[Rfam]
RNA sequence: GAAGCUGUGGAGAAGUGGGAGUUCUCACCGGUUUGUCAGACCGGAGGUCGCGGGUUCAAGUCCCGCCGGCUUCA
Numbered sequence: 001g002a003a004g005c006u007g008u009g010g011a012g013a014a015g016u017g018g019g020a021g022u023u024c025u026c027a028c029c030g031g032u033u034u035g036u037c038a039g040a041c042c043g044g045a046g047g048u049c050g051c052g053g054g055u056u057c058a059a060g061u062c063c064c065g066c067c068g069g070c071u072u073c074a
Stems, first nucleotide, its partner, number of pairs: 001073007010026004028044005050066005
RNA: tRNA
Organism: Paenibacillus foliorum